[Rfam]
RNA sequence: AAGGUUCUGAGGACGGAACGGGCAGCCGUCGCUGGAUAGUCGAAAGACUUGAUUAAGAGAUGCAGGAAUGUCACCCUGCCAAACCUU
Numbered sequence: 001a002a003g004g005u006u007c008u009g010a011g012g013a014c015g016g017a018a019c020g021g022g023c024a025g026c027c028g029u030c031g032c033u034g035g036a037u038a039g040u041c042g043a044a045a046g047a048c049u050u051g052a053u054u055a056a057g058a059g060a061u062g063c064a065g066g067a068a069u070g071u072c073a074c075c076c077u078g079c080c081a082a083a084c085c086u087u
Stems, first nucleotide, its partner, number of pairs: 001087006009080001012030005021072004032057001038049004062079005
The family of this 87-nucleotide RNA sequence is "skipping-rope RNA".